The family of this 77-nucleotide RNA sequence from Crocodylus porosus is "Mammalian CPEB3 ribozyme".

RNA sequence: UUAUUUAAAUAGCAGGCCAUAGCAGAAGCACUCAUUGCAUGGCCCUGUCAGAUUCCAACAAAUCUGUAAAUUCUGCU
Numbered sequence: 001u002u003a004u005u006u007a008a009a010u011a012g013c014a015g016g017c018c019a020u021a022g023c024a025g026a027a028g029c030a031c032u033c034a035u036u037g038c039a040u041g042g043c044c045c046u047g048u049c050a051g052a053u054u055c056c057a058a059c060a061a062a063u064c065u066g067u068a069a070a071u072u073c074u075g076c077u
Stems, first nucleotide, its partner, number of pairs: 015044004021077007028038003049066006
The base pairs follow the family's consensus structure, which is taken from published work. Gene Ontology term of the family: RNA nuclease activity.